Shown here is an 81-nucleotide RNA from Mastacembelus armatus, a member of the family "mir-16 microRNA precursor family". Clan: mir-15 clan. A search with the family's covariance model found it, with a score of 45 bits. The family has 14 seed sequences and 4,705 matches in Rfam 15.1. The family's consensus secondary structure was predicted with PFOLD.
[Rfam]
RNA sequence: GCCACACUGAAGCAGCACUGCUAAUAUUGGGGUUGGGGUAUAUUCUCACACGCCAAUAUUUACGUGCUGCUAAAGCGUGGU
Numbered sequence: 001g002c003c004a005c006a007c008u009g010a011a012g013c014a015g016c017a018c019u020g021c022u023a024a025u026a027u028u029g030g031g032g033u034u035g036g037g038g039u040a041u042a043u044u045c046u047c048a049c050a051c052g053c054c055a056a057u058a059u060u061u062a063c064g065u066g067c068u069g070c071u072a073a074a075g076c077g078u079g080g081u
Stems, first nucleotide, its partner, number of pairs: 001081003005077001007075001011071008023060008